[Rfam]
mir-2060 microRNA precursor family: a 94-nucleotide RNA sequence from Branchiostoma lanceolatum. It scores 71 bits against the family's covariance model. NCBI's taxonomy places the organism under Eukaryota, Bilateria, Deuterostomia, Amphioxiformes, Branchiostoma.

RNA sequence: GUUUACCUGUGUGUGGAUGGUGUUCAAUAUCAGAAACAGGAAUGUUCACUUGUGUGUGAAUCGUGGUCAGCACCAGGGACAGGAAUGUCCGCCU
Numbered sequence: 001g002u003u004u005a006c007c008u009g010u011g012u013g014u015g016g017a018u019g020g021u022g023u024u025c026a027a028u029a030u031c032a033g034a035a036a037c038a039g040g041a042a043u044g045u046u047c048a049c050u051u052g053u054g055u056g057u058g059a060a061u062c063g064u065g066g067u068c069a070g071c072a073c074c075a076g077g078g079a080c081a082g083g084a085a086u087g088u089c090c091g092c093c094u
Stems, first nucleotide, its partner, number of pairs: 004085001006083005018075007026067001028065003032061001034055001036053005